[Rfam]
RNA: freshwater-1 RNA
RNA sequence: UGUUCAGGUCCUGCUCUGCUGUGCACGGCAACAGGUGAUGGGGAACAAACCAUCUAGAAAA
Number, nucleotide and partner (000 for none) at each position: 001u000002g000003u000004u000005c000006a000007g000008g000009u000010c035011c034012u033013g032014c000015u000016c000017u030018g029019c028020u027021g026022u000023g000024c000025a000026c021027g020028g019029c018030a017031a000032c013033a012034g011035g010036u000037g054038a053039u052040g051041g050042g000043g000044a000045a000046c000047a000048a000049a000050c041051c040052a039053u038054c037055u000056a000057g000058a000059a000060a000061a000